[Rfam]
RNA sequence: ACUUAACCCUCCUGUAAGUCGCUCUGGAUAAGAGCGUCUGCUAAAUGACUAAAA
Numbered sequence: 001a002c003u004u005a006a007c008c009c010u011c012c013u014g015u016a017a018g019u020c021g022c023u024c025u026g027g028a029u030a031a032g033a034g035c036g037u038c039u040g041c042u043a044a045a046u047g048a049c050u051a052a053a054a
Stems, first nucleotide, its partner, number of pairs: 013043001014041003020036006
A member of the RNA family "UnaL2 LINE 3' element" from Coregonus sp. 'balchen', 54 nucleotides long.
Rfam classes the family as a cis-regulatory element.
A search with the family's covariance model found it, with a score of 68 bits.
Pairs were carried over by alignment from the consensus structure, which is taken from published work.
Its family is annotated with transposition, RNA-mediated in the Gene Ontology.